[Rfam]
RNA sequence: AUAAUUCUUCAGGGCAGGGUGAAAUUCCCUACCGGCUGUAUUUAUGCAAUGCAUAUAAGCCAGCGAGCCGAAAGGCAUGAUAUGGUGUGAUUCCAUAGCCGACAGUAAAGUCUGGAUGAGAGAAGUAAUAA
Numbered sequence: 001a002u003a004a005u006u007c008u009u010c011a012g013g014g015c016a017g018g019g020u021g022a023a024a025u026u027c028c029c030u031a032c033c034g035g036c037u038g039u040a041u042u043u044a045u046g047c048a049a050u051g052c053a054u055a056u057a058a059g060c061c062a063g064c065g066a067g068c069c070g071a072a073a074g075g076c077a078u079g080a081u082a083u084g085g086u087g088u089g090a091u092u093c094c095a096u097a098g099c100c101g102a103c104a105g106u107a108a109a110g111u112c113u114g115g116a117u118g119a120g121a122g123a124a125g126u127a128a129u130a131a
Base pairs, nucleotide, nucleotide: 003129005127007125008124009123010122017029018028019027031111032110033101034100035064036063037062038061059099060098069075081097082096083095084094085093103114104113105112
Rfam assigns this 131-nucleotide sequence from Eubacterium sp. CAG:156 to the family "FMN riboswitch aptamer (RFN element)". Taxonomically the source falls in Eubacterium (Bacteria, Bacillota, Clostridia, Eubacteriaceae). The match comes from Rfam's covariance-model search (112 bits).